[Rfam]
RNA sequence: GGGGGCGACCUGGUUUCGACGUGGGUUACAAAGCCAAAGGCGCAUGUCGAGAACGCAAUUUCACUCGUAAAAAUGAGUUGCAAAACUAUAGUUGCCAAUAACGACAACUUCAAAGUAGCCGUCGCCGCUUAAUAGCGGUGAUCUACCCAUUGCCAGAGCUUGCUAGUGGGCGCUGUCACAAUGGUCAUAGCACACCAGCUCGUAGCCUAACUUGCUCAGCGUUAGCUACUAAAACUAAUGAGCUCGCUGCUUAGAUAUCCUGCUAACCGGAGCUUUAAGCGGCUAAAAUAGAUGAUUAGCUAAACAUGUAGUGCUAAUGGUAGAGGGCUUGCGGACGCGGGUUCGAUUCCCGCCGCCUCCACCA
Numbered sequence: 001g002g003g004g005g006c007g008a009c010c011u012g013g014u015u016u017c018g019a020c021g022u023g024g025g026u027u028a029c030a031a032a033g034c035c036a037a038a039g040g041c042g043c044a045u046g047u048c049g050a051g052a053a054c055g056c057a058a059u060u061u062c063a064c065u066c067g068u069a070a071a072a073a074u075g076a077g078u079u080g081c082a083a084a085a086c087u088a089u090a091g092u093u094g095c096c097a098a099u100a101a102c103g104a105c106a107a108c109u110u111c112a113a114a115g116u117a118g119c120c121g122u123c124g125c126c127g128c129u130u131a132a133u134a135g136c137g138g139u140g141a142u143c144u145a146c147c148c149a150u151u152g153c154c155a156g157a158g159c160u161u162g163c164u165a166g167u168g169g170g171c172g173c174u175g176u177c178a179c180a181a182u183g184g185u186c187a188u189a190g191c192a193c194a195c196c197a198g199c200u201c202g203u204a205g206c207c208u209a210a211c212u213u214g215c216u217c218a219g220c221g222u223u224a225g226c227u228a229c230u231a232a233a234a235c236u237a238a239u240g241a242g243c244u245c246g247c248u249g250c251u252u253a254g255a256u257a258u259c260c261u262g263c264u265a266a267c268c269g270g271a272g273c274u275u276u277a278a279g280c281g282g283c284u285a286a287a288a289u290a291g292a293u294g295a296u297u298a299g300c301u302a303a304a305c306a307u308g309u310a311g312u313g314c315u316a317a318u319g320g321u322a323g324a325g326g327g328c329u330u331g332c333g334g335a336c337g338c339g340g341g342u343u344c345g346a347u348u349c350c351c352g353c354c355g356c357c358u359c360c361a362c363c364a
Stems, first nucleotide, its partner, number of pairs: 001360007020333008033321004039315003043308005048067004055081006121142008147184006154175003158171004162199003166195002202229005214243005246283010258271003262300005268294001337353005